Small Cajal body specific RNA 8: a 131-nucleotide RNA from Molossus molossus. A search with the family's covariance model found it, with a score of 74 bits. It is annotated as a small Cajal body RNA. scaRNAs are a specific class of small nuclear RNAs which localise to the Cajal bodies and guide the modification of RNA polymerase II transcribed spliceosomal RNAs U1, U2, U4, U5 and U12. U92 belong to the H/ACA box class of guide RNAs as it has the predicted hairpin-hinge-hairpin-tail structure, conserved H/ACA-box motifs and is found associated with GAR1. Rfam 15.1 lists 955 matches to the family in 741 species. On this family, see Darzacq et al., EMBO J 2002: "Cajal body-specific small nuclear RNAs: a novel class of 2'-O-methylation and pseudouridylation guide RNAs".

[Rfam]
RNA sequence: UGGGAGGCUGAUUCACAAAUUGGGCCAAAGUACUGCUCUCAUUGUCACCAUACCUCCUUAGAACAAACUGCCUUUUGAAAAAAUCAAUCCCAUAGAGAUCAGGGAUGCAUACGUUUUCAGGGCUGGAAGCU
Numbered sequence: 001u002g003g004g005a006g007g008c009u010g011a012u013u014c015a016c017a018a019a020u021u022g023g024g025c026c027a028a029a030g031u032a033c034u035g036c037u038c039u040c041a042u043u044g045u046c047a048c049c050a051u052a053c054c055u056c057c058u059u060a061g062a063a064c065a066a067a068c069u070g071c072c073u074u075u076u077g078a079a080a081a082a083a084u085c086a087a088u089c090c091c092a093u094a095g096a097g098a099u100c101a102g103g104g105a106u107g108c109a110u111a112c113g114u115u116u117u118c119a120g121g122g123c124u125g126g127a128a129g130c131u
Stems, first nucleotide, its partner, number of pairs: 002058006015045004022038004068125001070123005083110002088105004